[Rfam]
RNA sequence: AGCCUCAUUCUAGAUGAAAAUGGGCAUGGUUGUCUGUGGUGUCCACAGAUGGUUAAUGUGACACUGAGACACAGGUUAUGCUUUCGUUAUUGCAGGGGCGACAAUGAGACCUGUAACAUUU
Numbered sequence: 001a002g003c004c005u006c007a008u009u010c011u012a013g014a015u016g017a018a019a020a021u022g023g024g025c026a027u028g029g030u031u032g033u034c035u036g037u038g039g040u041g042u043c044c045a046c047a048g049a050u051g052g053u054u055a056a057u058g059u060g061a062c063a064c065u066g067a068g069a070c071a072c073a074g075g076u077u078a079u080g081c082u083u084u085c086g087u088u089a090u091u092g093c094a095g096g097g098g099c100g101a102c103a104a105u106g107a108g109a110c111c112u113g114u115a116a117c118a119u120u121u
Stems, first nucleotide, its partner, number of pairs: 002062001004060001006058003021045007071114005085100003
RNA: Small nucleolar RNA SNORA1